[Rfam]
RNA sequence: CGGCAUGCGCUUGGACUCGAAGAUGCUUUGGGCCAUGCCGAGUAAAACCCGCCCACAAGGGGAUCUGUCCAGGGCGGGAGGGCAACCCCAGCAGCUCCAGUUUGACCGCGUCCAGGACACUGCCGAAUCCCUGGAAGGAGCGCCCCGAAAGUGCUGCUGGUGGCCGACCCUGACAGGGCCGAGGGAGCGUCAACUCAUAACCUCGAAGACGGCCAGCGCAA
Numbered sequence: 001c002g003g004c005a006u007g008c009g010c011u012u013g014g015a016c017u018c019g020a021a022g023a024u025g026c027u028u029u030g031g032g033c034c035a036u037g038c039c040g041a042g043u044a045a046a047a048c049c050c051g052c053c054c055a056c057a058a059g060g061g062g063a064u065c066u067g068u069c070c071a072g073g074g075c076g077g078g079a080g081g082g083c084a085a086c087c088c089c090a091g092c093a094g095c096u097c098c099a100g101u102u103u104g105a106c107c108g109c110g111u112c113c114a115g116g117a118c119a120c121u122g123c124c125g126a127a128u129c130c131c132u133g134g135a136a137g138g139a140g141c142g143c144c145c146c147g148a149a150a151g152u153g154c155u156g157c158u159g160g161u162g163g164c165c166g167a168c169c170c171u172g173a174c175a176g177g178g179c180c181g182a183g184g185g186a187g188c189g190u191c192a193a194c195u196c197a198u199a200a201c202c203u204c205g206a207a208g209a210c211g212g213c214c215a216g217c218g219c220a221a
Stems, first nucleotide, its partner, number of pairs: 001040007048078006066175004088160008097151001107142003111135006162214005181204004
This 221-nucleotide sequence belongs to the Rfam family "PAGEV RNA". Rfam's curators put it in the seed alignment. By type it is a small RNA.